[Rfam]
RNA: mir-8834 microRNA precursor family
Organism: Nyctereutes procyonoides
RNA sequence: GGGGGGAACAACCCCACUGGCUGCGCCAGCUCCCCAGCCCUGGAGUCAGCUCCCGCAGUACCUCCCGCAGCUCCCAGUCUGCAGGGGCCUGGAUGCUCCGGGGGCGG
Numbered sequence: 001g002g003g004g005g006g007a008a009c010a011a012c013c014c015c016a017c018u019g020g021c022u023g024c025g026c027c028a029g030c031u032c033c034c035c036a037g038c039c040c041u042g043g044a045g046u047c048a049g050c051u052c053c054c055g056c057a058g059u060a061c062c063u064c065c066c067g068c069a070g071c072u073c074c075c076a077g078u079c080u081g082c083a084g085g086g087g088c089c090u091g092g093a094u095g096c097u098c099c100g101g102g103g104g105c106g107g
Base pairs, nucleotide, nucleotide: 002099003098004097005096007094009091010090012087013086014085019079020078021077022076023075025073028072029071030070031069033067036063040058041057042056